[Rfam]
RNA sequence: UUCAGAGUAGAAAACGAAGCGUUAAGUGCUUAGAGGAUGGGAUGUUGCCUCUUUGACGAAGGAGUAGCGUGGCGCGCUAGUUUCGCGGUUUUGUUUUCGCAUUCGCUGCA
Numbered sequence: 001u002u003c004a005g006a007g008u009a010g011a012a013a014a015c016g017a018a019g020c021g022u023u024a025a026g027u028g029c030u031u032a033g034a035g036g037a038u039g040g041g042a043u044g045u046u047g048c049c050u051c052u053u054u055g056a057c058g059a060a061g062g063a064g065u066a067g068c069g070u071g072g073c074g075c076g077c078u079a080g081u082u083u084c085g086c087g088g089u090u091u092u093g094u095u096u097u098c099g100c101a102u103u104c105g106c107u108g109c110a
Base pairs, nucleotide, nucleotide: 001110003108004107005106010098011097012096013095014094015093016092017091018090019089020087021086022085026057027056029055032052033051034050035049036048040104041103042102043101044100061084062083063082064081
RNA: THF (Tetrahydrofolate) riboswitch aptamer